[Rfam]
RNA sequence: CCGGUCGUUCCGUCGACCGUAGCCUACCGGUGCAUGCGUUGUUGGCAACGACGACGUGUGAAGCCACCGGGACAACGUGGCGGGCCUCUGGCCUAGCUGUCUCCGUGAGGAGAGGUAACGCCUGCGAGCGUUGAUGCGGGUGAGCUG
Numbered sequence: 001c002c003g004g005u006c007g008u009u010c011c012g013u014c015g016a017c018c019g020u021a022g023c024c025u026a027c028c029g030g031u032g033c034a035u036g037c038g039u040u041g042u043u044g045g046c047a048a049c050g051a052c053g054a055c056g057u058g059u060g061a062a063g064c065c066a067c068c069g070g071g072a073c074a075a076c077g078u079g080g081c082g083g084g085c086c087u088c089u090g091g092c093c094u095a096g097c098u099g100u101c102u103c104c105g106u107g108a109g110g111a112g113a114g115g116u117a118a119c120g121c122c123u124g125c126g127a128g129c130g131u132u133g134a135u136g137c138g139g140g141u142g143a144g145c146u147g
Stems, first nucleotide, its partner, number of pairs: 002019006028069005033060012082094005096116003103110002121140006

A member of the RNA family "Group II catalytic intron D1-D4-7" from Paraburkholderia phytofirmans, 147 nucleotides long. Rfam's curators write: Group II introns are found in rRNA, tRNA and mRNA of organelles in fungi, plants and protists, and also in mRNA in bacteria. The family has 244 seed sequences and 1,296 matches in Rfam 15.1.